[Rfam]
RNA sequence: UAAUCAACUCCAUCGUGCAGAGGUUUGAGUGUCCUGUGUUUUGCCUAAUCGCAUUCAAUUUCUGCACGGUAGAGAUGGUAC
Numbered sequence: 001u002a003a004u005c006a007a008c009u010c011c012a013u014c015g016u017g018c019a020g021a022g023g024u025u026u027g028a029g030u031g032u033c034c035u036g037u038g039u040u041u042u043g044c045c046u047a048a049u050c051g052c053a054u055u056c057a058a059u060u061u062c063u064g065c066a067c068g069g070u071a072g073a074g075a076u077g078g079u080a081c
Stems, first nucleotide, its partner, number of pairs: 003079004008074003012070014027056006
Shown here is an 81-nucleotide RNA sequence from Drosophila simulans, a member of the family "mir-955 microRNA precursor family". Its family is annotated with miRNA-mediated post-transcriptional gene silencing and RISC complex in the Gene Ontology. NCBI's taxonomy places the organism under Eukaryota, Pterygota, Brachycera, Drosophilidae, Sophophora.